[Rfam]
RNA sequence: AAAAAUAACUGAUAAGAUUGCUGACCAUGGGUUCCCAGAGAGCCUUCCAGAGACAACAUUCCUGCUGGAUGCUGUGUGGUAGAUUCUCAGCUCUGGCCUCUUUGCCAAGAUCCCUGUGGCUGGGCUCAGGCCCAGAUUAAACUCCU
Numbered sequence: 001a002a003a004a005a006u007a008a009c010u011g012a013u014a015a016g017a018u019u020g021c022u023g024a025c026c027a028u029g030g031g032u033u034c035c036c037a038g039a040g041a042g043c044c045u046u047c048c049a050g051a052g053a054c055a056a057c058a059u060u061c062c063u064g065c066u067g068g069a070u071g072c073u074g075u076g077u078g079g080u081a082g083a084u085u086c087u088c089a090g091c092u093c094u095g096g097c098c099u100c101u102u103u104g105c106c107a108a109g110a111u112c113c114c115u116g117u118g119g120c121u122g123g124g125c126u127c128a129g130g131c132c133c134a135g136a137u138u139a140a141a142c143u144c145c146u
Stems, first nucleotide, its partner, number of pairs: 013017001034090001037087003041084001043082001045079002048076002051073002054071002057068001104131003109127002112124003

The record is a 146-nucleotide sequence from Sus scrofa, which matches "Human acetyl-coA cholesterol acyltransferase mRNA" in Rfam. Pairs were carried over by alignment from the consensus structure, which is taken from published work. A search with the family's covariance model found it, with a score of 59 bits.